[Rfam]
RNA sequence: CUAACUGGUACAUACGAACACAUACUCUGUUCUAAUCAGUGUGAAAACUGGUUUUCGCCGUUUUGGCGGACUUUUUCACUCUCAUUUUUGGGACUUCCGCGCGCGACCAGCUUGCUGGCGGCUGGGUGGAGCGGUCUCCGGGGGCGUACACCUUUCCCCCGCGAGGCCAACAACAA
Dot-bracket structure: .................................((((((........)))))).((((((...))))))...........................((((.((...((((....))))....)).))))...(((((.((((((...........))))))..)))))........
Numbered sequence: 001c002u003a004a005c006u007g008g009u010a011c012a013u014a015c016g017a018a019c020a021c022a023u024a025c026u027c028u029g030u031u032c033u034a035a036u037c038a039g040u041g042u043g044a045a046a047a048c049u050g051g052u053u054u055u056c057g058c059c060g061u062u063u064u065g066g067c068g069g070a071c072u073u074u075u076u077c078a079c080u081c082u083c084a085u086u087u088u089u090g091g092g093a094c095u096u097c098c099g100c101g102c103g104c105g106a107c108c109a110g111c112u113u114g115c116u117g118g119c120g121g122c123u124g125g126g127u128g129g130a131g132c133g134g135u136c137u138c139c140g141g142g143g144g145c146g147u148a149c150a151c152c153u154u155u156c157c158c159c160c161g162c163g164a165g166g167c168c169a170a171c172a173a174c175a176a
Stems, first nucleotide, its partner, number of pairs: 034053006055069006097129004102124002107118004133168005139161006

The family of this 176-nucleotide RNA from Phytophthora nicotianae is "U2 spliceosomal RNA".
It is annotated as a spliceosomal small nuclear RNA.
The organism belongs to Phytophthora, within Eukaryota.